[Rfam]
RNA: transfer-messenger RNA
Organism: Bacillus subtilis
RNA sequence: GGGGACGUUACGGAUUCGACAGGGAUGGAUCGAGCUUGAGCUGCGAGCCGAGAGGCGAUCUCGUAAACACGCACUUAAAUAUAACUGGCAAAACUAACAGUUUUAACCAAAACGUAGCAUUAGCUGCCUAAUAAGCGCAGCGAGCUCUUCCUGACAUUGCCUAUGUGUCUGUGAAGAGCACAUCCAAGUAGGCUACGCUUGCGUUCCCGUCUGAGAACGUAAGAAGAGAUGAACAGACUAGCUCUCGGAAGGCCCGCCCGCAGGCAAGAAGAUGAGUGAAACCAUAAAUAUGCAGGCUACGCUCGUAGACGCUUAAGUAAUCGAUGUUUCUGGACGUGGGUUCGACUCCCACCGUCUCCAUAC
Number, nucleotide and partner (000 for none) at each position: 001g359002g358003g357004g356005a355006c354007g353008u000009u000010a000011c000012g000013g000014a000015u000016u000017c000018g000019a000020c332021a331022g330023g329024g328025a327026u326027g325028g000029a000030u000031c000032g000033a000034g318035c317036u316037u315038g314039a313040g312041c311042u000043g000044c305045g304046a303047g302048c301049c063050g062051a061052g060053a059054g000055g072056c071057g070058a000059u053060c052061u051062c050063g049064u000065a000066a000067a000068c000069a000070c057071g056072c055073a000074c000075u000076u000077a000078a000079a000080u000081a000082u000083a000084a000085c000086u000087g000088g000089c000090a000091a000092a000093a000094c000095u000096a000097a000098c000099a000100g000101u000102u000103u000104u000105a000106a000107c000108c000109a000110a000111a000112a000113c000114g000115u000116a000117g000118c000119a000120u000121u000122a000123g141124c140125u139126g138127c137128c135129u134130a000131a000132u000133a000134a129135g128136c000137g127138c126139a125140g124141c123142g000143a000144g179145c178146u177147c176148u175149u174150c173151c000152u171153g170154a168155c167156a166157u165158u000159g193160c192161c191162u190163a189164u188165g157166u156167g155168u154169c000170u153171g152172u000173g150174a149175a148176g147177a146178g145179c144180a000181c000182a000183u000184c000185c000186a000187a000188g164189u163190a162191g161192g160193c159194u000195a000196c000197g000198c223199u222200u221201g220202c219203g218204u217205u216206c215207c000208c000209g238210u237211c236212u235213g234214a000215g206216a205217a204218c203219g202220u201221a200222a199223g198224a000225a000226g000227a000228g000229a000230u000231g000232a000233a000234c213235a212236g211237a210238c209239u000240a000241g277242c276243u274244c000245u272246c271247g000248g000249a000250a000251g000252g265253c264254c263255c000256g297257c296258c295259c000260g000261c000262a291263g254264g253265c252266a000267a000268g000269a000270a000271g246272a245273u000274g243275a000276g242277u241278g000279a000280a000281a000282c000283c000284a000285u000286a000287a000288a000289u000290a000291u262292g000293c000294a000295g258296g257297c256298u000299a000300c000301g048302c047303u046304c045305g044306u000307a000308g000309a000310c000311g041312c040313u039314u038315a037316a036317g035318u034319a000320a000321u000322c000323g000324a000325u027326g026327u025328u024329u023330c022331u021332g020333g000334a000335c000336g352337u351338g350339g349340g348341u000342u000343c000344g000345a000346c000347u000348c340349c339350c338351a337352c336353c007354g006355u005356c004357u003358c002359c001360a000361u000362a000363c000